[Rfam]
RNA sequence: CCACGCUAGAUGGGGAGUUAGCGGUGCCCUGUAACCUGCAAUCCGCUAUAGCAGGGUUGAAUUCCUUGAUUAGGUAUCAGUAAUUUAUAGUCUGACUUUUGUAAGUGGUGUUGAUGACUGGGUCCCACGCAAUGGAAGCCCAUGAACCUCGUCAGGUCUGGAAGGAAGCAGCGAUAAGUGGUCACUUUCGUGUGCCGUGGAUCAAUCUGGUCUGAGCUAACUGCAGAAGUAACGUAUAGAGAGCUGAUAACAACUCAAGGUGCGUGG
Numbered sequence: 001c002c003a004c005g006c007u008a009g010a011u012g013g014g015g016a017g018u019u020a021g022c023g024g025u026g027c028c029c030u031g032u033a034a035c036c037u038g039c040a041a042u043c044c045g046c047u048a049u050a051g052c053a054g055g056g057u058u059g060a061a062u063u064c065c066u067u068g069a070u071u072a073g074g075u076a077u078c079a080g081u082a083a084u085u086u087a088u089a090g091u092c093u094g095a096c097u098u099u100u101g102u103a104a105g106u107g108g109u110g111u112u113g114a115u116g117a118c119u120g121g122g123u124c125c126c127a128c129g130c131a132a133u134g135g136a137a138g139c140c141c142a143u144g145a146a147c148c149u150c151g152u153c154a155g156g157u158c159u160g161g162a163a164g165g166a167a168g169c170a171g172c173g174a175u176a177a178g179u180g181g182u183c184a185c186u187u188u189c190g191u192g193u194g195c196c197g198u199g200g201a202u203c204a205a206u207c208u209g210g211u212c213u214g215a216g217c218u219a220a221c222u223g224c225a226g227a228a229g230u231a232a233c234g235u236a237u238a239g240a241g242a243g244c245u246g247a248u249a250a251c252a253a254c255u256c257a258a259g260g261u262g263c264g265u266g267g
Stems, first nucleotide, its partner, number of pairs: 001267006009058003012030004017025003035055005064260006073251001075249003080244002084240006093231002097228006105221002107218003116212008125200005130192002133190005138183001140181004149174004157166003